[Rfam]
RNA sequence: GUGAGACCACACGACUGGCGCAGGUGGGUGACCACCAGGGAGUGAAGCCAGGGAGCAUCGAACGCCUGGGUGCUCCCC
Numbered sequence: 001g002u003g004a005g006a007c008c009a010c011a012c013g014a015c016u017g018g019c020g021c022a023g024g025u026g027g028g029u030g031a032c033c034a035c036c037a038g039g040g041a042g043u044g045a046a047g048c049c050a051g052g053g054a055g056c057a058u059c060g061a062a063c064g065c066c067u068g069g070g071u072g073c074u075c076c077c078c
Stems, first nucleotide, its partner, number of pairs: 005049001007047001010044003015039002017066004024035004055073005
RNA: ZMP/ZTP riboswitch aptamer (pfl RNA motif)
Organism: Nocardioides currus